[Rfam]
RNA sequence: UAAAUACAGUGAUCGCUGAUAUGUAUAUCCUGGGGAUUGGCCCAGAGUUUCUACCGACUGCCGUAAGAGUUGACUACAUAGACAUUCGUUUGUUGU
Numbered sequence: 001u002a003a004a005u006a007c008a009g010u011g012a013u014c015g016c017u018g019a020u021a022u023g024u025a026u027a028u029c030c031u032g033g034g035g036a037u038u039g040g041c042c043c044a045g046a047g048u049u050u051c052u053a054c055c056g057a058c059u060g061c062c063g064u065a066a067g068a069g070u071u072g073a074c075u076a077c078a079u080a081g082a083c084a085u086u087c088g089u090u091u092g093u094u095g096u
Stems, first nucleotide, its partner, number of pairs: 020080006030045005055072005

The family of this 96-nucleotide RNA from Schaedlerella arabinosiphila is "Purine riboswitch aptamer". Its family is annotated with purine nucleobase biosynthetic process in the Gene Ontology. The base pairs follow the family's consensus structure, which is taken from published work.